[Rfam]
mir-4798 microRNA precursor family: a 75-nucleotide RNA from Sapajus apella. Rfam links the family to the GO terms miRNA-mediated post-transcriptional gene silencing and RISC complex. Pairs were carried over by alignment from the consensus structure, which was predicted with RNAalifold.

RNA sequence: AAGUACGGCUUCUGUCUACUUUGUGAGUUGGCUUUUACAAAAGACCAAUGCACAAGGUAUACAGAAGUCGUACUU
Numbered sequence: 001a002a003g004u005a006c007g008g009c010u011u012c013u014g015u016c017u018a019c020u021u022u023g024u025g026a027g028u029u030g031g032c033u034u035u036u037a038c039a040a041a042a043g044a045c046c047a048a049u050g051c052a053c054a055a056g057g058u059a060u061a062c063a064g065a066a067g068u069c070g071u072a073c074u075u
Stems, first nucleotide, its partner, number of pairs: 001075006008068008017059009028048004032043004